[Rfam]
RNA: EcpR1
RNA sequence: AUGCCCCUCGGAGACUCAGGUCCGCCGCAUCUCCUGGGAAACCGAAGGGCUCGGCCGGUCGGCAGCGGAAUUCUGGCCUCCUCAGAACCGUCGCCGACCGGCCACCUC
Number, nucleotide and partner (000 for none) at each position: 001a000002u000003g050004c049005c048006c047007c000008u045009c044010g043011g000012a000013g000014a000015c038016u037017c036018a035019g034020g033021u000022c000023c000024g000025c000026c000027g000028c000029a000030u000031c000032u000033c020034c019035u018036g017037g016038g015039a000040a000041a000042c000043c010044g009045a008046a000047g006048g005049g004050c003051u000052c000053g103054g102055c101056c100057g099058g098059u097060c096061g095062g094063c093064a000065g000066c000067g000068g000069a000070a000071u000072u000073c000074u000075g000076g000077c000078c000079u000080c000081c000082u000083c000084a000085g000086a000087a000088c000089c000090g000091u000092c000093g063094c062095c061096g060097a059098c058099c057100g056101g055102c054103c053104a000105c000106c000107u000108c000